[Rfam]
RNA sequence: AGCUUCUUGAAUCCGUGCAGAGAUUUCAUCAGAUACCAACCUAUCAGGGCUGAUCAGACUUUUGAGACAGGUGAAGUU
Numbered sequence: 001a002g003c004u005u006c007u008u009g010a011a012u013c014c015g016u017g018c019a020g021a022g023a024u025u026u027c028a029u030c031a032g033a034u035a036c037c038a039a040c041c042u043a044u045c046a047g048g049g050c051u052g053a054u055c056a057g058a059c060u061u062u063u064g065a066g067a068c069a070g071g072u073g074a075a076g077u078u
Base pairs, nucleotide, nucleotide: 002077003076004075005074006073008071012067013066016064017063019062020061021060022059024058025057026056028054029053030052
RNA: mir-3492 microRNA precursor family
Organism: Schistosoma margrebowiei